Shown here is a 376-nucleotide sequence from Lentibacillus sp. JNUCC-1, a member of the family "Bacterial RNase P class B". The base pairs follow the family's consensus structure, which is taken from published work. A reference for the family is Frank and Pace (1998), "Ribonuclease P: unity and diversity in a tRNA processing ribozyme", Annu Rev Biochem. The source organism's lineage runs through Bacteria, Bacillati, Bacillota, Bacilli and Lentibacillus. About the family: Ribonuclease P (RNase P) is a ubiquitous endoribonuclease, found in archaea, bacteria and eukarya as well as chloroplasts and mitochondria. A search with the family's covariance model found it, with a score of 325 bits. The family's RNA type in Rfam is ribozyme.
RNA sequence: AUACUCACGUAAUCGCUGCAGACUUGAUCUGCAGAGGAAAGUCCAUACUCACACAGGCUGAGAUGCCUGUAGUGUUCGUGCUUGACGAAACGAUAAGUCAAGGUAGCCAUACGGCUAACGGCAGCGGAGCCCCUAAGUCAAUUGAUAUGGGGCAGUACGCUUGAAAGUGCCACAGUGACGUAUGCGUAGUGGAAACACUGCGCGUGGAACGCGGUAAACCCCACGAGUGAGCAACCCAAACAAAGGUAGGGGCACCCUUGAUUAGGAAAUUCAACCGAAAAAGGGACAAGAACUUUCUUGUAGACAGAUGAUUACGACCGUUGUACGAGGCUGACCACCGCUUGCAGUACGACGGAACAGAAUAUGGCUUACAGAG
Dot-bracket structure: ...(((.(((((((.((((((.......))))))....[[[.[[[[[(((((((((((......)))))).....(((((((((((..........))))))((((((....))))).)((.((((...((((...(((....)))..)))).....)))).....(((((............((((((((....)))))))).........)))..))))))))))))))...(((...........)))...(((((.....................)))))((((((....))))))........))))))).(((((((((....................))))))))).......]]]]]]]]...)))